[Rfam]
RNA sequence: UUGCGUCUUCAGGGCGGGGUGAAAUUCCCCACCGGCGGUAAGCCGCGCGUUUCCUCUGUCGGAAACCGCGCGACAAGCCCGCGAGCGCCCGCACCCGUGCGGGGUCAGCAGAUCUGGUGAAAUGCCAGAGCCGACGGUCAGAGUCCGGAUGAAAGAAGAUGAGU
Numbered sequence: 001u002u003g004c005g006u007c008u009u010c011a012g013g014g015c016g017g018g019g020u021g022a023a024a025u026u027c028c029c030c031a032c033c034g035g036c037g038g039u040a041a042g043c044c045g046c047g048c049g050u051u052u053c054c055u056c057u058g059u060c061g062g063a064a065a066c067c068g069c070g071c072g073a074c075a076a077g078c079c080c081g082c083g084a085g086c087g088c089c090c091g092c093a094c095c096c097g098u099g100c101g102g103g104g105u106c107a108g109c110a111g112a113u114c115u116g117g118u119g120a121a122a123u124g125c126c127a128g129a130g131c132c133g134a135c136g137g138u139c140a141g142a143g144u145c146c147g148g149a150u151g152a153a154a155g156a157a158g159a160u161g162a163g164u
Base pairs, nucleotide, nucleotide: 004161005160006159007158008157009156010155017029018028019027031144032143033133034132035082036081037080038079077131078130085109086108113129114128115127116126117125135147136146137145
Shown here is a 164-nucleotide RNA from Microvirgula aerodenitrificans, a member of the family "FMN riboswitch aptamer (RFN element)". Pairs were carried over by alignment from the consensus structure, which is taken from published work. NCBI's taxonomy places the organism under Bacteria, Pseudomonadota, Neisseriales, Aquaspirillaceae, Microvirgula. Its family is annotated with FMN binding in the Gene Ontology.